[Rfam]
Nucleotides: 117
Stems, first nucleotide, its partner, number of pairs: 016032005079117005089112002092109005098103001
Number, partner (000 for none) and nucleotide at each position: 001000a002000g003000u004000g005000c006000a007000c008000u009000g010000u011000c012000c013000c014000c015000c016032g017031g018030c019029g020028g021000c022000g023000c024000c025000c026000g027000a028020u029019c030018g031017c032016c033000g034000c035000u036000u037000c038000a039000g040000g041000u042000c043000a044000u045000g046000a047000a048000u049000g050000c051000a052000c053000u054000u055000g056000a057000u058000u059000g060000a061000u062000g063000u064000g065000c066000a067000c068000c069000g070000c071000u072000c073000g074000a075000c076000c077000u078000a079117u080116g081115g082114g083113g084000g085000g086000a087000g088000c089112c090111g091000c092109u093108c094107u095106g096105c097000c098103g099000c100000g101000u102000g103098c104000u105096g106095c107094a108093g109092a110000u111090u112089g113083c114082c115081c116080c117079g
The record is a 117-nucleotide RNA from Plasticicumulans acidivorans, which matches "ALIL pseudoknot" in Rfam. By type it is a cis-regulatory element. The literature on the family includes a 2008 paper in J Biol Chem by Mazauric et al., "Apical loop-internal loop RNA pseudoknots: a new type of stimulator of -1 translational frameshifting in bacteria". The family's consensus secondary structure is taken from published work.